mir-210 microRNA precursor family: a 95-nucleotide RNA from Chionoecetes opilio. A search with the family's covariance model found it, with a score of 60 bits. The literature on the family includes a 2005 paper in Proc Natl Acad Sci U S A by Cai et al., "Kaposi's sarcoma-associated herpesvirus expresses an array of viral microRNAs in latently infected cells". The family has 26 seed sequences and 790 matches in Rfam 15.1. The organism belongs to Chionoecetes, within Eukaryota.
[Rfam]
RNA sequence: UCGAAUCUCACUACAGCUGCUGGACACUGCACAAGAUUAGCCAUUUGUGACUUGUGCGUGUGACAGCGGCUAUUGUGAACAUUCUUCCCCGCCCU
Number, nucleotide and partner (000 for none) at each position: 001u000002c000003g000004a000005a082006u081007c000008u078009c077010a076011c075012u000013a000014c000015a071016g070017c069018u068019g067020c066021u065022g064023g000024a000025c060026a059027c000028u058029g057030c056031a055032c054033a053034a000035g051036a000037u000038u000039a000040g000041c000042c000043a000044u000045u000046u000047g000048u000049g000050a000051c035052u000053u033054g032055u031056g030057c029058g028059u026060g025061u000062g000063a000064c022065a021066g020067c019068g018069g017070c016071u015072a000073u000074u000075g011076u010077g009078a008079a000080c000081a006082u005083u000084c000085u000086u000087c000088c000089c000090c000091g000092c000093c000094c000095u000
Source information: Gene Ontology terms of the family: RISC complex and miRNA-mediated post-transcriptional gene silencing.